[Rfam]
This 72-nucleotide sequence from Ardenticatena maritima belongs to the Rfam family "tRNA".
Transfer RNA (tRNA) molecules are approximately 80 nucleotides in length.
Its family is annotated with triplet codon-amino acid adaptor activity in the Gene Ontology.
Lineage of the source: Bacteria > Bacillati > Ardenticatenales > Ardenticatenaceae > Ardenticatena.
The family's consensus secondary structure is taken from published work.
RNA sequence: GCGGGCGUAGUUCAGUGGUAGAACGUCAGCUUCCCAAGCUGAAUGUCGCCGGUUCGAAUCCGGUCGCCCGCU
Numbered sequence: 001g002c003g004g005g006c007g008u009a010g011u012u013c014a015g016u017g018g019u020a021g022a023a024c025g026u027c028a029g030c031u032u033c034c035c036a037a038g039c040u041g042a043a044u045g046u047c048g049c050c051g052g053u054u055c056g057a058a059u060c061c062g063g064u065c066g067c068c069c070g071c072u
Stems, first nucleotide, its partner, number of pairs: 001071007010024004026042005048064005
Dot-bracket structure: (((((((..((((.......)))).(((((.......))))).....(((((.......)))))))))))).